[Rfam]
Notes: A member of the RNA family "SAM (S-adenosyl methionine) riboswitch aptamer" from Knoellia remsis, 111 nucleotides long.
Nucleotides: 111
Base pairs, nucleotide, nucleotide: 002076003075004074009038011037012036013035014034015033016032021030022029039064040063041062044060045059046058048055049054080100081099082098083097084096086094087093
Number, partner (000 for none) and nucleotide at each position: 001000a002076g003075u004074c005000a006000c007000g008000a009038g010000u011037c012036c013035c014034a015033g016032c017000g018000a019000c020000a021030a022029g023000c024000c025000c026000c027000g028000g029022c030021u031000g032016g033015c034014u035013g036012g037011g038009c039064g040063g041062c042000a043000a044060c045059c046058c047000u048055c049054c050000u051000c052000g053000c054049g055048g056000u057000g058046g059045g060044g061000u062041g063040c064039c065000c066000c067000g068000g069000g070000u071000g072000a073000g074004g075003a076002c077000a078000c079000g080100g081099c082098c083097c084096g085000c086094c087093g088000a089000c090000a091000u092000c093087c094086g095000u096084c097083g098082g099081g100080c101000a102000a103000g104000c105000g106000c107000g108000a109000c110000g111000c
A reference for the family is Weinberg et al. (2008), "The aptamer core of SAM-IV riboswitches mimics the ligand-binding site of SAM-I riboswitches", RNA. NCBI's taxonomy places the organism under Bacteria, Bacillati, Actinomycetes, Micrococcales, Knoellia. Gene Ontology terms of the family: regulation of gene expression and S-adenosylmethionine metabolic process.